This 46-nucleotide RNA from Desmophyllum pertusum belongs to the Rfam family "Histone 3' UTR stem-loop". Lineage of the source: Eukaryota > Eumetazoa > Anthozoa > Hexacorallia > Desmophyllum. It scores 35 bits against the family's covariance model.
RNA sequence: ACAACGGCUCCUUUAGGAGCCACCAAAUAUCUCAAAAGUCAUGACC
Numbered sequence: 001a002c003a004a005c006g007g008c009u010c011c012u013u014u015a016g017g018a019g020c021c022a023c024c025a026a027a028u029a030u031c032u033c034a035a036a037a038g039u040c041a042u043g044a045c046c
Base pairs, nucleotide, nucleotide: 006021007020008019009018010017011016